[Rfam]
RNA sequence: UGGGAGUCGGGCGGACGUGGUCGUCGCCAACCCGGUCAGGUCCUGACGGAAGCAGCCGCAACGAUUUCGCCGCGGGUCGUCCCGGCUCCCACCG
Numbered sequence: 001u002g003g004g005a006g007u008c009g010g011g012c013g014g015a016c017g018u019g020g021u022c023g024u025c026g027c028c029a030a031c032c033c034g035g036u037c038a039g040g041u042c043c044u045g046a047c048g049g050a051a052g053c054a055g056c057c058g059c060a061a062c063g064a065u066u067u068c069g070c071c072g073c074g075g076g077u078c079g080u081c082c083c084g085g086c087u088c089c090c091a092c093c094g
Base pairs, nucleotide, nucleotide: 002090003089004088005087006086009082010081011080012079013078016074017073018072019071020070021069023065024064025063026062033058034057035056036055041050042049043048